Shown here is an 85-nucleotide RNA from Nelumbo nucifera, a member of the family "Small nucleolar RNA Z102/R77".
RNA sequence: GAAUGAGAUGAUUAUGUCAUUGUUUCCCUAUUGGUUUUAUGGCCACCAUGAUGGCAAUACUAGUUUUAGCUCUAGAUGAUCAUUC
Numbered sequence: 001g002a003a004u005g006a007g008a009u010g011a012u013u014a015u016g017u018c019a020u021u022g023u024u025u026c027c028c029u030a031u032u033g034g035u036u037u038u039a040u041g042g043c044c045a046c047c048a049u050g051a052u053g054g055c056a057a058u059a060c061u062a063g064u065u066u067u068a069g070c071u072c073u074a075g076a077u078g079a080u081c082a083u084u085c
Stems, first nucleotide, its partner, number of pairs: 002084004038057001042055003
The family has 9 seed sequences and 1,346 matches in Rfam 15.1. On this family, see Barneche et al., J Mol Biol 2001: "Identification of 66 box C/D snoRNAs in Arabidopsis thaliana: extensive gene duplications generated multiple isoforms predicting new ribosomal RNA 2'-O-methylation sites". Taxonomically the source falls in Nelumbo (Eukaryota, Magnoliopsida, Mesangiospermae, Proteales). The family's RNA type in Rfam is C/D-box small nucleolar RNA. The family is grouped with related families in Rfam's "SNORD44 clan".